[Rfam]
RNA sequence: AGAAGGGCGACCGACUGUGGGGAGGAAGCGUGGAGCGUAAACCGCGAGCCGAGGUACACAAAUCGCAUUCGAGGCGGAUCCGGACAGGGCGAGCAGCCAAGUGACUGCAAAGCUCUUGUGGCCUAAGUGCCGGGUACGUAAAUGCGGCGGUUGUGCGGUGAAGGAUGGCGUUC
Numbered sequence: 001a002g003a004a005g006g007g008c009g010a011c012c013g014a015c016u017g018u019g020g021g022g023a024g025g026a027a028g029c030g031u032g033g034a035g036c037g038u039a040a041a042c043c044g045c046g047a048g049c050c051g052a053g054g055u056a057c058a059c060a061a062a063u064c065g066c067a068u069u070c071g072a073g074g075c076g077g078a079u080c081c082g083g084a085c086a087g088g089g090c091g092a093g094c095a096g097c098c099a100a101g102u103g104a105c106u107g108c109a110a111a112g113c114u115c116u117u118g119u120g121g122c123c124u125a126a127g128u129g130c131c132g133g134g135u136a137c138g139u140a141a142a143u144g145c146g147g148c149g150g151u152u153g154u155g156c157g158g159u160g161a162a163g164g165a166u167g168g169c170g171u172u173c
Base pairs, nucleotide, nucleotide: 001016002015005012006011028173030171031170032169035166036164041159042158043157044156045155046154047152048151049150050149051148063147064146065145066144067143068142074139075138076137078135080133081132082131083130085129086128087115088114089113090112093108094107095106096105
RNA: Group II catalytic intron D1-D4-3
Organism: Pseudomonas syringae group genomosp. 3